[Rfam]
Nucleotides: 083
Base pairs, nucleotide, nucleotide: 001083002082003081004080
Number, partner (000 for none) and nucleotide at each position: 001083u002082a003081g004080u005000a006000g007000u008000g009000a010000u011000g012000a013000a014000a015000u016000a017000a018000a019000g020000g021000a022000u023000a024000u025000g026000g027000u028000u029000u030000a031000g032000c033000a034000a035000c036000u037000a038000c039000a040000g041000c042000c043000u044000g045000a046000u047000u048000a049000u050000u051000u052000a053000u054000u055000g056000a057000u058000g059000a060000c061000a062000c063000u064000a065000u066000c067000c068000u069000u070000g071000g072000c073000u074000g075000u076000c077000u078000g079000a080004a081003c082002u083001a